[Rfam]
RNA sequence: AAAACGGUAGCGCUUAAUUCUUUGACUUUUUCAAAGAAACGGGGGAACCAAUUCCAGGGGUGAAUCCUUUAGCCUUAAAAAAAGAUUAUCUUUAAAAGGAUCUAUUUGCGCUAAAGGUAGGGUUGCCCUUUAACCCGAACCCGUCAGCUAACUUCGUAAGCGUAAAAAGGGUAUUU
Dot-bracket structure: ..........((((...((((((((.....))))))))((((((....(.......)(((.....((((((((....................................))))))))..((((.........))))...))).........)))))).))))..............
Numbered sequence: 001a002a003a004a005c006g007g008u009a010g011c012g013c014u015u016a017a018u019u020c021u022u023u024g025a026c027u028u029u030u031u032c033a034a035a036g037a038a039a040c041g042g043g044g045g046a047a048c049c050a051a052u053u054c055c056a057g058g059g060g061u062g063a064a065u066c067c068u069u070u071a072g073c074c075u076u077a078a079a080a081a082a083a084g085a086u087u088a089u090c091u092u093u094a095a096a097a098g099g100a101u102c103u104a105u106u107u108g109c110g111c112u113a114a115a116g117g118u119a120g121g122g123u124u125g126c127c128c129u130u131u132a133a134c135c136c137g138a139a140c141c142c143g144u145c146a147g148c149u150a151a152c153u154u155c156g157u158a159a160g161c162g163u164a165a166a167a168a169g170g171g172u173a174u175u176u
Stems, first nucleotide, its partner, number of pairs: 011162004018038008039157006049057001058142003066117008120136004

c-di-AMP riboswitch aptamer (ydaO/yuaA leader): a 176-nucleotide RNA from Peptococcaceae bacterium SCADC1_2_3.
Rfam's curators write: This family represents a conserved RNA structure found upstream of the ydaO and yuaA genes in Bacillus subtilis and related genes in other bacteria.